[Rfam]
RNA: SAM riboswitch aptamer (S box leader)
Organism: Sphaerobacter thermophilus
RNA sequence: CUCUUAUCCAGAGUGGUGGAGGGAACGGCCCGACGAAGCCCGGCAACCGACGGAUCGCACGGUCCGCGCGGUGCCAAUUCCGGCAGCGGCGUUGCCGCUGAGAGAUGAGAG
Numbered sequence: 001c002u003c004u005u006a007u008c009c010a011g012a013g014u015g016g017u018g019g020a021g022g023g024a025a026c027g028g029c030c031c032g033a034c035g036a037a038g039c040c041c042g043g044c045a046a047c048c049g050a051c052g053g054a055u056c057g058c059a060c061g062g063u064c065c066g067c068g069c070g071g072u073g074c075c076a077a078u079u080c081c082g083g084c085a086g087c088g089g090c091g092u093u094g095c096c097g098c099u100g101a102g103a104g105a106u107g108a109g110a111g
Stems, first nucleotide, its partner, number of pairs: 001111008013041001015040003021031003026082003042075004047071002049067001051066004079103001084100006